[Rfam]
RNA sequence: UGGACGGAUUAUUGUAUUCGACCGUAUUCACGGCGUGAAACAUGGGAUUACACUGUUUUUAAACGGAAAGUCAAUCAACAAACUCAAUUAUAAUACA
Numbered sequence: 001u002g003g004a005c006g007g008a009u010u011a012u013u014g015u016a017u018u019c020g021a022c023c024g025u026a027u028u029c030a031c032g033g034c035g036u037g038a039a040a041c042a043u044g045g046g047a048u049u050a051c052a053c054u055g056u057u058u059u060u061a062a063a064c065g066g067a068a069a070g071u072c073a074a075u076c077a078a079c080a081a082a083c084u085c086a087a088u089u090a091u092a093a094u095a096c097a
Base pairs, nucleotide, nucleotide: 010095011094012093013092014091015090017087018086020085021084024076026075027074028073030071031070034065035064036063037059038058039057040056041055042054
RNA: MIR6152 microRNA precursor family